[Rfam]
RNA sequence: GCAUCUGAAUCUUUCCCAAUCCUUGCUAUGUAGUGCUGGGCUGGAGACACAGGAUGCAACAGGAAAGCAGAGGAAAUCCAGACAAGCUUCCUUUUCAUCACAGUGGGACUUGUCUCUACGCCUUUGCAACAUUU
Numbered sequence: 001g002c003a004u005c006u007g008a009a010u011c012u013u014u015c016c017c018a019a020u021c022c023u024u025g026c027u028a029u030g031u032a033g034u035g036c037u038g039g040g041c042u043g044g045a046g047a048c049a050c051a052g053g054a055u056g057c058a059a060c061a062g063g064a065a066a067g068c069a070g071a072g073g074a075a076a077u078c079c080a081g082a083c084a085a086g087c088u089u090c091c092u093u094u095u096c097a098u099c100a101c102a103g104u105g106g107g108a109c110u111u112g113u114c115u116c117u118a119c120g121c122c123u124u125u126g127c128a129a130c131a132u133u134u
Base pairs, nucleotide, nucleotide: 001057002056003055004054005053013047014046016044017043018042021039022038067127068126069125070124071123072122080115081114082113083112084111085110086109094106095105